Shown here is a 105-nucleotide RNA from Paenibacillus oceani, a member of the family "Purine riboswitch aptamer". The family is grouped with related families in Rfam's "Purine riboswitches". The match comes from Rfam's covariance-model search (62 bits). The source organism's lineage runs through Bacteria, Bacilli, Caryophanales, Paenibacillaceae and Paenibacillus. Pairs were carried over by alignment from the consensus structure, which is taken from published work.

RNA sequence: CAACAUAGAAUUGAAAUGACUCCUAUAAUGUUGGGAAUAUGGCCCAAUAAGUUUCUACCGGAUAACCAUCGUAAUUGUCCGACUAUGAGUGGAGAGCGAGUGCGC
Dot-bracket structure: ..................((((.((...(((((((.......))))))).........(((((((.........)))))))..)).))))...............
Numbered sequence: 001c002a003a004c005a006u007a008g009a010a011u012u013g014a015a016a017u018g019a020c021u022c023c024u025a026u027a028a029u030g031u032u033g034g035g036a037a038u039a040u041g042g043c044c045c046a047a048u049a050a051g052u053u054u055c056u057a058c059c060g061g062a063u064a065a066c067c068a069u070c071g072u073a074a075u076u077g078u079c080c081g082a083c084u085a086u087g088a089g090u091g092g093a094g095a096g097c098g099a100g101u102g103c104g105c
Stems, first nucleotide, its partner, number of pairs: 019090004024085002029049007059081007